[Rfam]
RNA sequence: CAGAAUAGAAAUUAUUUGGUUCGUAUAUCCUUAAUGAUAUGGGUUAAGGGUUUCUACCAGGAGCCGUAAAUUCCUGUCUACGAAAUGGGGUUAAGCUAUA
Numbered sequence: 001c002a003g004a005a006u007a008g009a010a011a012u013u014a015u016u017u018g019g020u021u022c023g024u025a026u027a028u029c030c031u032u033a034a035u036g037a038u039a040u041g042g043g044u045u046a047a048g049g050g051u052u053u054c055u056a057c058c059a060g061g062a063g064c065c066g067u068a069a070a071u072u073c074c075u076g077u078c079u080a081c082g083a084a085a086u087g088g089g090g091u092u093a094a095g096c097u098a099u100a
Stems, first nucleotide, its partner, number of pairs: 018086001020084006029049007058076006